[Rfam]
RNA sequence: UACUAGCAAACCCUAUCUCCACCUCCACGUGGUGACCGCUGGGAGCUCUUUCUUAACGAAAGGCUGCAGACGGAGAAGG
Numbered sequence: 001u002a003c004u005a006g007c008a009a010a011c012c013c014u015a016u017c018u019c020c021a022c023c024u025c026c027a028c029g030u031g032g033u034g035a036c037c038g039c040u041g042g043g044a045g046c047u048c049u050u051u052c053u054u055a056a057c058g059a060a061a062g063g064c065u066g067c068a069g070a071c072g073g074a075g076a077a078g079g
Base pairs, nucleotide, nucleotide: 012079013078014077016075018073019072021033022032023031045065047063048062049061050060051059053058
RNA: drz-agam-1 ribozyme
Organism: Hermetia illucens